Background:
Rfam assigns this 120-nucleotide RNA sequence from Poindextera montana to the family "TPP riboswitch aptamer (THI element)". The source organism's lineage runs through Bacteria, Pseudomonadota, Alphaproteobacteria, Caulobacterales and Poindextera. Pairs were carried over by alignment from the consensus structure, which is taken from published work. From the family's description: Vitamin B(1) in its active form thiamin pyrophosphate (TPP) is an essential coenzyme that is synthesised by coupling of pyrimidine and thiazole moieties in bacteria. The previously detected thiamin-regulatory element, thi box was extended, resulting in a new, highly conserved RNA secondary structure, the THI element, which is widely distributed in eubacteria and also occurs in some archaea. A search with the family's covariance model found it, with a score of 64 bits.
RNA sequence: CCCCACUCUCCGGGGUGUCCCGCUCAAGGGGCUGAGAUAUCGCUGGGCGCGAGCCGGCGCGAUGACCCGCCGAACCUGAUCCGGAUCAUGCCGGCGAAGGGAUGAGAUUGGGGUCCUGGG
Numbered sequence: 001c002c003c004c005a006c007u008c009u010c011c012g013g014g015g016u017g018u019c020c021c022g023c024u025c026a027a028g029g030g031g032c033u034g035a036g037a038u039a040u041c042g043c044u045g046g047g048c049g050c051g052a053g054c055c056g057g058c059g060c061g062a063u064g065a066c067c068c069g070c071c072g073a074a075c076c077u078g079a080u081c082c083g084g085a086u087c088a089u090g091c092c093g094g095c096g097a098a099g100g101g102a103u104g105a106g107a108u109u110g111g112g113g114u115c116c117u118g119g120g
Base pairs, nucleotide, nucleotide: 007107008106009105010104011069012068013067014066017032018031019030020029021028039063040062041061042060043059075100076099077098081094082093083092084091